RNA sequence: GAAUCGCUAUGAUGAAUUAAGGGAAACUUCACAUGUCAGACUUGAGAGAUACCACGGUAUCAAUGAGAUUAUAUCCUUAUAUCUGAGCCAAAU
Numbered sequence: 001g002a003a004u005c006g007c008u009a010u011g012a013u014g015a016a017u018u019a020a021g022g023g024a025a026a027c028u029u030c031a032c033a034u035g036u037c038a039g040a041c042u043u044g045a046g047a048g049a050u051a052c053c054a055c056g057g058u059a060u061c062a063a064u065g066a067g068a069u070u071a072u073a074u075c076c077u078u079a080u081a082u083c084u085g086a087g088c089c090a091a092a093u
Base pairs, nucleotide, nucleotide: 001093004090006088007087048061049060050059051058
RNA: Small nucleolar RNA R64/Z200 family
Organism: Carex littledalei